[Rfam]
RNA sequence: UUGAUAAGUUGGCGGCUCCCAUGCCGCCAAUCUUCUCGGGGAGGGGAUAGAUCGACGCGUCAAGAAAUCGUUUCAAUUGCCAUGGCUUCCAGUAGGCAAUAUGAUUGUUGCUUGCGUACAA
Number, nucleotide and partner (000 for none) at each position: 001u000002u000003g037004a036005u000006a034007a033008g032009u000010u029011g028012g027013c026014g025015g024016c000017u000018c000019c000020c000021a000022u000023g000024c015025c014026g013027c012028c011029a010030a000031u000032c008033u007034u006035c000036u004037c003038g000039g000040g000041g000042a000043g000044g000045g000046g000047a000048u000049a000050g000051a000052u000053c000054g000055a000056c000057g000058c000059g117060u116061c000062a113063a112064g111065a000066a000067a105068u104069c103070g102071u000072u000073u000074c000075a000076a100077u099078u098079g097080c096081c095082a000083u000084g000085g000086c000087u000088u000089c000090c000091a000092g000093u000094a000095g081096g080097c079098a078099a077100u076101a000102u070103g069104a068105u067106u000107g000108u000109u000110g000111c064112u063113u062114g000115c000116g060117u059118a000119c000120a000121a000
Shown here is a 121-nucleotide RNA from Triticum urartu, a member of the family "Small nucleolar RNA snoR111". The family's RNA type in Rfam is H/ACA-box small nucleolar RNA. Its family is annotated with nucleolus and RNA processing in the Gene Ontology. Lineage of the source: Eukaryota > Liliopsida > Petrosaviidae > Poales > Triticum.